A member of the RNA family "Eukaryotic small subunit ribosomal RNA" from Diversispora epigaea, 538 nucleotides of a longer RNA. The match comes from Rfam's covariance-model search (1816 bits). NCBI's taxonomy places the organism under Eukaryota, Fungi, Glomeromycota, Glomeromycetes, Diversispora. Gene Ontology terms of the family: structural constituent of ribosome and ribosome. The base pairs follow the family's consensus structure, which is taken from published work.
Nucleotides: 538
Stems, first nucleotide, its partner, number of pairs: 001501001003499001009498001011366001013364002018359003257353004261348002264345002269341004275319002279315006286308001290301003327334002371412006381405001385401004423497003427489002430473003435468008444460003477484002503530003512523004
Number, partner (000 for none) and nucleotide at each position: 001501c002000a003499g004000u005000u006000a007000a008000a009498a010000a011366g012000c013364u014363c015000g016000u017000a018359g019358u020357u021000g022000a023000a024000c025000u026000u027000c028000g029000g030000g031000g032000u033000u034000u035000a036000c037000u038000c039000a040000u041000u042000g043000g044000u045000c046000a047000g048000g049000c050000u051000u052000a053000a054000u055000u056000g057000u058000c059000u060000g061000u062000a063000c064000u065000g066000g067000u068000u069000a070000g071000a072000u073000g074000a075000a076000u077000c078000u079000c080000u081000a082000c083000c084000u085000u086000c087000u088000g089000a090000g091000g092000a093000a094000c095000u096000u097000u098000c099000a100000u101000g102000c103000c104000a105000u106000u107000u108000g109000u110000u111000u112000g113000g114000u115000g116000u117000g118000a119000u120000u121000g122000g123000a124000a125000a126000u127000c128000a129000g130000g131000a132000c133000u134000g135000u136000u137000a138000c139000u140000u141000u142000g143000a144000a145000a146000a147000a148000a149000u150000u151000a152000g153000a154000g155000u156000g157000u158000u159000u160000a161000a162000a163000g164000c165000a166000g167000g168000c169000u170000a171000a172000c173000g174000u175000c176000u177000g178000a179000a180000u181000a182000c183000a184000u185000u186000a187000g188000c189000a190000u191000g192000g193000a194000a195000u196000a197000a198000u199000g200000a201000a202000a203000u204000a205000g206000g207000a208000c209000g210000g211000a212000u213000u214000g215000a216000u217000u218000c219000u220000a221000u222000u223000u224000c225000g226000u227000u228000g229000g230000u231000u232000u233000c234000u235000a236000g237000g238000g239000u240000c241000a242000c243000c244000g245000u246000a247000a248000u249000g250000a251000u252000u253000a254000a255000u256000a257353g258352g259351g260350a261348u262347a263000g264345u265344u266000g267000g268000g269341g270340g271339c272338a273000u274000u275319a276318g277000u278000a279315u280314u281313c282312a283311a284310u285000u286308g287000u288000c289000a290301g291300a292299g293000g294000u295000g296000a297000a298000a299292u300291u301290c302000u303000u304000g305000g306000a307000u308286u309000u310284a311283u312282u313281g314280a315279a316000g317000a318276c319275u320000a321000a322000c323000u324000a325000c326000u327334g328333c329000g330000a331000a332000a333328g334327c335000a336000u337000u338272u339271g340270c341269c342000a343000a344265g345264g346000a347262u348261g349000u350260u351259u352258u353257c354000a355000u356000u357020a358019a359018u360000c361000a362000a363014g364013a365000a366011c367000g368000a369000a370000a371412g372411u373410u374409a375408g376407g377000g378000g379000a380000u381405c382000g383000a384000a385401g386400a387399c388398g389000a390000u391000c392000a393000g394000a395000u396000a397000c398388c399387g400386u401385c402000g403000u404000a405381g406000u407376c408375u409374u410373a411372a412371c413000c414000a415000u416000a417000a418000a419000c420000u421000a422000u423497g424496c425495c426000g427489a428488c429000u430473a431472g432471g433000g434000a435468u436467c437466g438465g439464a440463c441462g442461c443000a444460g445459u446458u447000a448000a449000u450000u451000u452000u453000a454000u455000a456000a457000u458446g459445a460444c461442g462441u463440g464439u465438u466437c467436g468435g469000c470000a471432c472431c473430u474000u475000a476000c477484g478483g479000g480000a481000a482000a483478c484477c485000a486000a487000a488428g489427u490000g491000u492000u493000u494000g495425g496424g497423u498009u499003c500000c501001g502000g503530g504529g505528g506000g507000a508000g509000u510000a511000u512523g513522g514521u515520c516000g517000c518000a519000a520515g521514g522513c523512u524000g525000a526000a527000a528505c529504u530503u531000a532000a533000a534000g535000g536000a537000a538000u